Rfam assigns this 65-nucleotide sequence from Cercocebus atys to the family "Selenocysteine insertion sequence 1".
[Rfam]
RNA sequence: CCGGCACCCAUGACGGCCUGCCUGCAAACCAGCUCCUGGUGAGGCAGACCUGAAAAUCCAGCGUG
Numbered sequence: 001c002c003g004g005c006a007c008c009c010a011u012g013a014c015g016g017c018c019u020g021c022c023u024g025c026a027a028a029c030c031a032g033c034u035c036c037u038g039g040u041g042a043g044g045c046a047g048a049c050c051u052g053a054a055a056a057u058c059c060a061g062c063g064u065g
Base pairs, nucleotide, nucleotide: 001065004062005061015050016049018047019046020045021044022043023042030038031037032036
Taxonomically the source falls in Cercocebus (Eukaryota, Metazoa, Deuterostomia, Cercopithecoidea).